The record is a 104-nucleotide RNA from Zingiber officinale, which matches "mir-166 microRNA precursor family" in Rfam. The organism belongs to Zingiber, within Eukaryota. This family represents the plant microRNA (miRNA) precursor mir-166. A search with the family's covariance model found it, with a score of 85 bits.

RNA sequence: UUUGAGGGGAAUGUUGUCUGGCUCGGGGUAUCCAGAUAUAUAACUAAUCUCAGCUCUGACUGAUAGUGUUUGGAGAUCUCGGACCAGGCUUCAUUCCCCCCAAU
Numbered sequence: 001u002u003u004g005a006g007g008g009g010a011a012u013g014u015u016g017u018c019u020g021g022c023u024c025g026g027g028g029u030a031u032c033c034a035g036a037u038a039u040a041u042a043a044c045u046a047a048u049c050u051c052a053g054c055u056c057u058g059a060c061u062g063a064u065a066g067u068g069u070u071u072g073g074a075g076a077u078c079u080c081g082g083a084c085c086a087g088g089c090u091u092c093a094u095u096c097c098c099c100c101c102a103a104u
Stems, first nucleotide, its partner, number of pairs: 002103003006099008016089006024081003
Dot-bracket structure: .(((.((((((((..((((((..(((....................................................)))..))))))..)))))))).))).

The literature on the family includes a 2002 paper in Genes Dev by Reinhart et al., "MicroRNAs in plants". Pairs were carried over by alignment from the consensus structure, which was predicted with PFOLD.